Rfam assigns this 142-nucleotide RNA sequence from Cyprinus carpio to the family "Small nucleolar RNA SNORA79". By type it is an H/ACA-box small nucleolar RNA. Pairs were carried over by alignment from the consensus structure, which was predicted with RNAalifold. ACA65 (SNORA79) is a member of the H/ACA class of snoRNAs that guide the sites of modification of uridines to pseudouridines. This snoRNA was identified by computational screening and its expression in mouse experimentally verified by Northern blot and primer extension analysis. A search with the family's covariance model found it, with a score of 62 bits. Gene Ontology terms of the family: RNA processing and nucleolus. NCBI's taxonomy places the organism under Eukaryota, Cyprinoidei, Cyprininae, Cyprinus, Cyprinus carpio.
[Rfam]
Nucleotides: 142
Base pairs, nucleotide, nucleotide: 001057002056003055004054005053006052007051014044015043016042017041018040020036021035022034023033068135069134070133071132072131081121082120083119084118085117086116087115088114
Number, partner (000 for none) and nucleotide at each position: 001057u002056g003055a004054u005053g006052a007051u008000u009000g010000u011000u012000c013000c014044u015043c016042c017041u018040g019000c020036u021035g022034c023033u024000c025000u026000g027000a028000g029000c030000u031000c032000a033023g034022g035021c036020a037000g038000c039000u040018c041017a042016g043015g044014a045000u046000u047000u048000u049000a050000c051007a052006u053005c054004a055003u056002c057001a058000g059000a060000g061000a062000g063000a064000a065000u066000c067000a068135g069134a070133g071132u072131c073000u074000a075000c076000u077000u078000c079000a080000c081121c082120c083119g084118g085117u086116g087115u088114g089000u090000g091000c092000c093000g094000a095000c096000c097000c098000a099000g100000c101000g102000g103000u104000c105000a106000c107000a108000u109000g110000u111000g112000g113000c114088c115087a116086c117085a118084c119083u120082g121081g122000a123000c124000a125000u126000u127000g128000c129000g130000u131072g132071a133070c134069u135068c136000u137000a138000c139000a140000g141000c142000u